[Rfam]
RNA sequence: GGUAGUAGCAAAUAUUCAAAUGAGAACUUUGAAGACUGAAGUGGAGAAAGGUUCCUGGAGAACAUUAUUUGGUCCAGGGUUAGUCGAUCCUAAGAGAUAGGGAAAUUCCGUUUUUUCAAAGCAAUCAAUCUUGAUUCGCCUAUCGAAAGGGAAACAGUUUAAUAUUACUGUACUAGGAUGAGGAUUUUCUGCGGUAACGCAAAUGAACUUGGAGACAUCAGUGUGGAUCCCAGGAAGAGUUAUCUUUUCUUUUUAACAACUUUGUUGUAGACCUUGAAAUCUGUUUAGCAGGAGAAAAGGUUUACCGGUUGGUAGAGCAUAGUACUUUUUGCUAUGUCUGGUGCAUUCACAACGAUCCUUGAAAAUCCAAGGGAAAGAAUAAUUUUCUCGCCUAGUCGUACUCAUAACCGCAGCAGGUCUCCAAGGUGAAAAGCCUCUAGUUGA
Numbered sequence: 001g002g003u004a005g006u007a008g009c010a011a012a013u014a015u016u017c018a019a020a021u022g023a024g025a026a027c028u029u030u031g032a033a034g035a036c037u038g039a040a041g042u043g044g045a046g047a048a049a050g051g052u053u054c055c056u057g058g059a060g061a062a063c064a065u066u067a068u069u070u071g072g073u074c075c076a077g078g079g080u081u082a083g084u085c086g087a088u089c090c091u092a093a094g095a096g097a098u099a100g101g102g103a104a105a106u107u108c109c110g111u112u113u114u115u116u117c118a119a120a121g122c123a124a125u126c127a128a129u130c131u132u133g134a135u136u137c138g139c140c141u142a143u144c145g146a147a148a149g150g151g152a153a154a155c156a157g158u159u160u161a162a163u164a165u166u167a168c169u170g171u172a173c174u175a176g177g178a179u180g181a182g183g184a185u186u187u188u189c190u191g192c193g194g195u196a197a198c199g200c201a202a203a204u205g206a207a208c209u210u211g212g213a214g215a216c217a218u219c220a221g222u223g224u225g226g227a228u229c230c231c232a233g234g235a236a237g238a239g240u241u242a243u244c245u246u247u248u249c250u251u252u253u254u255a256a257c258a259a260c261u262u263u264g265u266u267g268u269a270g271a272c273c274u275u276g277a278a279a280u281c282u283g284u285u286u287a288g289c290a291g292g293a294g295a296a297a298a299g300g301u302u303u304a305c306c307g308g309u310u311g312g313u314a315g316a317g318c319a320u321a322g323u324a325c326u327u328u329u330u331g332c333u334a335u336g337u338c339u340g341g342u343g344c345a346u347u348c349a350c351a352a353c354g355a356u357c358c359u360u361g362a363a364a365a366u367c368c369a370a371g372g373g374a375a376a377g378a379a380u381a382a383u384u385u386u387c388u389c390g391c392c393u394a395g396u397c398g399u400a401c402u403c404a405u406a407a408c409c410g411c412a413g414c415a416g417g418u419c420u421c422c423a424a425g426g427u428g429a430a431a432a433g434c435c436u437c438u439a440g441u442u443g444a
Stems, first nucleotide, its partner, number of pairs: 015033006034442004043422004049402002054078006063071002085398003089150002094144002096112003100109003120136002154171005174394004179390005184384001190201004208371006217356003222351007230341003233253006257311005271301005280292004318336007408417002424436004
Eukaryotic large subunit ribosomal RNA: a 444-nucleotide part of an RNA from Mucor lusitanicus. The base pairs follow the family's consensus structure, which is taken from published work. Rfam links the family to the GO terms structural constituent of ribosome and ribosome. Lineage of the source: Eukaryota > Fungi > Mucorineae > Mucoraceae > Mucor lusitanicus. A search with the family's covariance model found it, with a score of 3267 bits.